[Rfam]
The family of this 114-nucleotide RNA sequence from Clostridium sp. N3C is "FMN riboswitch aptamer (RFN element)". Pairs were carried over by alignment from the consensus structure, which is taken from published work. The source organism's lineage runs through Bacteria, Bacillati, Bacillota, Eubacteriales and Clostridium. Rfam 15.1 lists 6,230 matches to the family in 5,120 species.
RNA sequence: UUAUAUCUUCAGGGCAGGGUGCAAGUCCCUACCGGCGGUAUAGCCCGCGAGCCGUAAGGUUGAUUCGGUGAAAGUCCGAAGCCGACAGUAUAGUCUGGAUGGGAGAAGAUAAUU
Numbered sequence: 001u002u003a004u005a006u007c008u009u010c011a012g013g014g015c016a017g018g019g020u021g022c023a024a025g026u027c028c029c030u031a032c033c034g035g036c037g038g039u040a041u042a043g044c045c046c047g048c049g050a051g052c053c054g055u056a057a058g059g060u061u062g063a064u065u066c067g068g069u070g071a072a073a074g075u076c077c078g079a080a081g082c083c084g085a086c087a088g089u090a091u092a093g094u095c096u097g098g099a100u101g102g103g104a105g106a107a108g109a110u111a112a113u114u
Stems, first nucleotide, its partner, number of pairs: 004111007017029003031094002033084002035048004043082002051060003064080005086097003